[Rfam]
RNA sequence: UUCUAUCUUCGGGGCAGGGUGAAAUUCCCGACCGGCGGUGAGGAGCUUCGAGCUCUAAGUCCGUGACCCGUUCAUUUUUAUGAACGGUGGAUCUGGUGAGAUUCCAGAGCCGACAGUUACAGUCUGGAUGGGAGAAGAUAAGA
Number, nucleotide and partner (000 for none) at each position: 001u000002u000003c000004u140005a139006u138007c137008u136009u135010c134011g000012g000013g000014g000015c000016a000017g029018g028019g027020u000021g000022a000023a000024a000025u000026u000027c019028c018029c017030g000031a123032c122033c112034g111035g064036c063037g062038g061039u000040g000041a000042g000043g000044a000045g000046c000047u000048u000049c000050g000051a000052g000053c000054u000055c000056u000057a000058a000059g110060u109061c038062c037063g036064u035065g000066a000067c000068c087069c086070g000071u000072u000073c000074a000075u000076u000077u000078u000079u000080a000081u000082g000083a000084a000085c000086g069087g068088u000089g000090g000091a000092u108093c107094u106095g105096g104097u000098g000099a000100g000101a000102u000103u000104c096105c095106a094107g093108a092109g060110c059111c034112g033113a000114c126115a125116g124117u000118u000119a000120c000121a000122g032123u031124c116125u115126g114127g000128a000129u000130g000131g000132g000133a000134g010135a009136a008137g007138a006139u005140a004141a000142g000143a000
This 143-nucleotide RNA sequence from Saliterribacillus persicus belongs to the Rfam family "FMN riboswitch aptamer (RFN element)". Taxonomically the source falls in Saliterribacillus (Bacteria, Bacillati, Bacilli, Bacillaceae). Rfam describes the family as follows. The RFN element is a highly conserved domain that is found frequently in the 5'-untranslated regions of prokaryotic mRNAs that encode for flavin mononucleotide (FMN) biosynthesis and transport proteins. A search with the family's covariance model found it, with a score of 124 bits.